[Rfam]
RNA sequence: AGCGCCACGGAUGUCGGUGGUUCUCGACAGAAGCGAGUUCGCACUGCGAACUCGUCGUUGAACAGUGUACAGGGACGUACACUGUUCAACAGUC
Numbered sequence: 001a002g003c004g005c006c007a008c009g010g011a012u013g014u015c016g017g018u019g020g021u022u023c024u025c026g027a028c029a030g031a032a033g034c035g036a037g038u039u040c041g042c043a044c045u046g047c048g049a050a051c052u053c054g055u056c057g058u059u060g061a062a063c064a065g066u067g068u069a070c071a072g073g074g075a076c077g078u079a080c081a082c083u084g085u086u087c088a089a090c091a092g093u094c
Base pairs, nucleotide, nucleotide: 001018003016004015006013034054035053036052037051038050039049040048041047042046057090058089059088060087061086062085063084064083065082066081067080068079069078070077
RNA: TD-2 RNA
Organism: Treponema vincentii